Background: This 233-nucleotide RNA sequence from Wolbachia sp. wRi belongs to the Rfam family "Group II catalytic intron D1-D4-6". The source organism's lineage runs through Bacteria, Alphaproteobacteria, Rickettsiales, Anaplasmataceae and Wolbachia. On this family, see Bonen and Vogel, Trends Genet 2001: "The ins and outs of group II introns". About the family: Group II introns are found in rRNA, tRNA and mRNA of organelles in fungi, plants and protists, and also in mRNA in bacteria.

RNA sequence: AAAAUCCAACACGGGUAAAGCUUAGCCGGCAACCUGGAACAAACCAUUAUGCUGCGUAAGGUAACGAGCGUAGUAAAGCUAAUGGAAUGGACAACAUAGGGUGCAACGAAAGUGAAGGUAUUGAGUCCCGUAAUUCACGCGUCAUGGGGGCUGACACUUUACAUUUGGUGGAAGGCAACAUGGGUAAUAACGCUAAGGCAAGAUAUUACUCACCUCAUCGGGAUCGAAGGCCG
Numbered sequence: 001a002a003a004a005u006c007c008a009a010c011a012c013g014g015g016u017a018a019a020g021c022u023u024a025g026c027c028g029g030c031a032a033c034c035u036g037g038a039a040c041a042a043a044c045c046a047u048u049a050u051g052c053u054g055c056g057u058a059a060g061g062u063a064a065c066g067a068g069c070g071u072a073g074u075a076a077a078g079c080u081a082a083u084g085g086a087a088u089g090g091a092c093a094a095c096a097u098a099g100g101g102u103g104c105a106a107c108g109a110a111a112g113u114g115a116a117g118g119u120a121u122u123g124a125g126u127c128c129c130g131u132a133a134u135u136c137a138c139g140c141g142u143c144a145u146g147g148g149g150g151c152u153g154a155c156a157c158u159u160u161a162c163a164u165u166u167g168g169u170g171g172a173a174g175g176c177a178a179c180a181u182g183g184g185u186a187a188u189a190a191c192g193c194u195a196a197g198g199c200a201a202g203a204u205a206u207u208a209c210u211c212a213c214c215u216c217a218u219c220g221g222g223a224u225c226g227a228a229g230g231c232c233g
Stems, first nucleotide, its partner, number of pairs: 012036005020030003023201001025199002040089002044085004050075008060065001122227001123225001125224006144218006150176003155170004181212009191202001